RNA sequence: AGCAGCAGGGCUGAAAUAUCUGUCUUGGGCAUCUCUUAUGCCUUCCAGAGGUUUCUUCUGAGAACAUUGAAC
Numbered sequence: 001a002g003c004a005g006c007a008g009g010g011c012u013g014a015a016a017u018a019u020c021u022g023u024c025u026u027g028g029g030c031a032u033c034u035c036u037u038a039u040g041c042c043u044u045c046c047a048g049a050g051g052u053u054u055c056u057u058c059u060g061a062g063a064a065c066a067u068u069g070a071a072c
Base pairs, nucleotide, nucleotide: 009059010058013055014054015053016052017051019049020048021047022046027043028042029041030040031039032038
Record summary: The family of this 72-nucleotide RNA is "mir-2996 microRNA precursor family". It is one of the family's seed sequences.